[Rfam]
Description
Shown here is a 127-nucleotide RNA from Spinacia oleracea, a member of the family "MIR408 microRNA precursor family". The organism belongs to Spinacia, within Eukaryota. The base pairs follow the family's consensus structure, which was predicted with WAR. On this family, see Sunkar and Zhu, Plant Cell 2004: "Novel and stress-regulated microRNAs and other small RNAs from Arabidopsis". A search with the family's covariance model found it, with a score of 83 bits. Gene Ontology terms of the family: miRNA-mediated post-transcriptional gene silencing and RISC complex.
RNA sequence: AUUUUGGGAGGGAUAGAAGCUGGGGAAGAGGCAGAGCAUGAGAUGGAUCAAUCAACAAUGUAGAUUAUUGAUGUUGUUGCUCCUCCCAUGCACUGUCUCUUCCCUGGCAUCUCCUUCAUAGUUUCUC
Numbered sequence: 001a002u003u004u005u006g007g008g009a010g011g012g013a014u015a016g017a018a019g020c021u022g023g024g025g026a027a028g029a030g031g032c033a034g035a036g037c038a039u040g041a042g043a044u045g046g047a048u049c050a051a052u053c054a055a056c057a058a059u060g061u062a063g064a065u066u067a068u069u070g071a072u073g074u075u076g077u078u079g080c081u082c083c084u085c086c087c088a089u090g091c092a093c094u095g096u097c098u099c100u101u102c103c104c105u106g107g108c109a110u111c112u113c114c115u116u117c118a119u120a121g122u123u124u125c126u127c
Stems, first nucleotide, its partner, number of pairs: 017110001019108001021106007029098006036091005042086001046082002